[Rfam]
RNA sequence: AUACGUCCUCGUUAGGUGAGGCUCCUAUAUAAACACAGGCCACUGCCCAGAAAUAUCGAAAGAUGCCCAUGGGUAGAACAGGGAUUGCCGGAUUAAGGCUUUUCAUAAAGUGGCUAAGAGAAAAUUUGUUCUCUUUACGUUAUAUAGUGCCAAAACUCGACUAGGGGGAAACGA
Dot-bracket structure: .....((((((([.(((..(((..((((((((......(((((.(((((....((((....))))....))))).......(((..(((......])))..))).....))))).((((((........))))))....)))))))).)))...)))..))...))))).....